Overview: Shown here is a 191-nucleotide RNA from Pan paniscus, a member of the family "U2 spliceosomal RNA". U2 is a small nuclear RNA (snRNA) component of the spliceosome (involved in pre-mRNA splicing). Complementary binding between U2 snRNA (in an area lying towards the 5' end but 3' to hairpin I) and the branchpoint sequence (BPS) of the intron results the bulging out of an unpaired adenosine, on the BPS, which initiates a nucleophilic attack at the intronic 5' splice site, thus starting the first of two transesterification reactions that mediate splicing. NCBI's taxonomy places the organism under Eukaryota, Teleostomi, Eutheria, Catarrhini, Pan. The base pairs follow the family's consensus structure, which is taken from published work. It is annotated as a spliceosomal small nuclear RNA. Rfam links the family to the GO terms U2 snRNP, mRNA branch site recognition and pre-mRNA branch point binding.

RNA sequence: ACUGCUUCUCAGCCUUUUGGCUAAGACCAAGUGUAGUAUCUGUUGUUACAUGCUUAAUAUCUGAUUCCUCCUCUAUCCGAGGACAAUAUGUUAAGUGGAUUUUGGAAGCAGGGAGCUAGAACAGGAGCUUGCUUCAUCCACUCCACACAUCGACCUGGUACUGCAGUACCUCCAGGAAUGAUGCACCUCCU
Numbered sequence: 001a002c003u004g005c006u007u008c009u010c011a012g013c014c015u016u017u018u019g020g021c022u023a024a025g026a027c028c029a030a031g032u033g034u035a036g037u038a039u040c041u042g043u044u045g046u047u048a049c050a051u052g053c054u055u056a057a058u059a060u061c062u063g064a065u066u067c068c069u070c071c072u073c074u075a076u077c078c079g080a081g082g083a084c085a086a087u088a089u090g091u092u093a094a095g096u097g098g099a100u101u102u103u104g105g106a107a108g109c110a111g112g113g114a115g116c117u118a119g120a121a122c123a124g125g126a127g128c129u130u131g132c133u134u135c136a137u138c139c140a141c142u143c144c145a146c147a148c149a150u151c152g153a154c155c156u157g158g159u160a161c162u163g164c165a166g167u168a169c170c171u172c173c174a175g176g177a178a179u180g181a182u183g184c185a186c187c188u189c190c191u
Stems, first nucleotide, its partner, number of pairs: 007026003011022004048065001052061001069083005112144004119137001124135004148183005154176005